[Rfam]
RNA sequence: GUUGCUCACUCUUCCUCAAAGGCUUCCGGAUAGCAAUGCCAGACAUUAUGAGCUGGAAGCCUUUUAGGGAGAGUGGACAAAAG
Numbered sequence: 001g002u003u004g005c006u007c008a009c010u011c012u013u014c015c016u017c018a019a020a021g022g023c024u025u026c027c028g029g030a031u032a033g034c035a036a037u038g039c040c041a042g043a044c045a046u047u048a049u050g051a052g053c054u055g056g057a058a059g060c061c062u063u064u065u066a067g068g069g070a071g072a073g074u075g076g077a078c079a080a081a082a083g
Base pairs, nucleotide, nucleotide: 006076007075008074009073010072011071012070013069014068015067018064019063020062021061022060023059024058025057026056
RNA: MIR473 microRNA precursor family
Organism: Rhamnella rubrinervis